[Rfam]
RNA sequence: AGCUCCUGUCUGGGCUUCACAAUAGUCGAAUACCUUAAAUUUCAAAAUUUGGAUAUUCGUUGUUGAUGAAGCCUUGAUGGGGGUG
Numbered sequence: 001a002g003c004u005c006c007u008g009u010c011u012g013g014g015c016u017u018c019a020c021a022a023u024a025g026u027c028g029a030a031u032a033c034c035u036u037a038a039a040u041u042u043c044a045a046a047a048u049u050u051g052g053a054u055a056u057u058c059g060u061u062g063u064u065g066a067u068g069a070a071g072c073c074u075u076g077a078u079g080g081g082g083g084u085g
Stems, first nucleotide, its partner, number of pairs: 003083008012074008020065006027059006033052002
Notes: Shown here is an 85-nucleotide sequence from Caenorhabditis elegans, a member of the family "mir-76 microRNA precursor family". Lineage of the source: Eukaryota > Ecdysozoa > Rhabditida > Rhabditina > Caenorhabditis. The family's consensus secondary structure was predicted with RNAalifold.